[Rfam]
Nucleotides: 073
Base pairs, nucleotide, nucleotide: 001072002071003070004069005068006067007066010025011024012023013022027043028042029041030040031039049065050064051063052062053061
Number, partner (000 for none) and nucleotide at each position: 001072g002071c003070c004069g005068a006067u007066g008000u009000a010025g011024c012023u013022c014000a015000g016000u017000u018000g019000g020000u021000a022013g023012a024011g025010c026000a027043a028042c029041g030040c031039a032000u033000u034000c035000g036000u037000a038000a039031u040030g041029c042028g043027u044000a045000g046000g047000u048000c049065c050064g051063c052062g053061g054000u055000u056000c057000g058000a059000a060000u061053c062052c063051g064050c065049g066007c067006a068005u069004c070003g071002g072001c073000u